The family of this 119-nucleotide RNA sequence from Beta vulgaris is "Plastid-psbA-1 3UTR RNA". Plastid psbA-1 is a non-coding RNA (ncRNA) present in plastids. It was identified in inverted repeat sequences in the 3 prime untranslate region (3UTR) of photosystem II quinone-binding protein (psbA). NCBI's taxonomy places the organism under Eukaryota, Embryophyta, Spermatophyta, Betoideae, Beta vulgaris. The match comes from Rfam's covariance-model search (98 bits).

RNA sequence: UCGAAGCUCCAUCUACAAAUGGAUAAAUUUUCGUUUUUAGUUUAGUGUAUACGAGUUAUUGAAAGUAAAGGGGCAUUGCCGGUUUCUUGUUCUAUCAAGAAAUUGGUUACUGCUCCUUU
Numbered sequence: 001u002c003g004a005a006g007c008u009c010c011a012u013c014u015a016c017a018a019a020u021g022g023a024u025a026a027a028u029u030u031u032c033g034u035u036u037u038u039a040g041u042u043u044a045g046u047g048u049a050u051a052c053g054a055g056u057u058a059u060u061g062a063a064a065g066u067a068a069a070g071g072g073g074c075a076u077u078g079c080c081g082g083u084u085u086c087u088u089g090u091u092c093u094a095u096c097a098a099g100a101a102a103u104u105g106g107u108u109a110c111u112g113c114u115c116c117u118u119u
Stems, first nucleotide, its partner, number of pairs: 008023005067119009077109002080105003084101005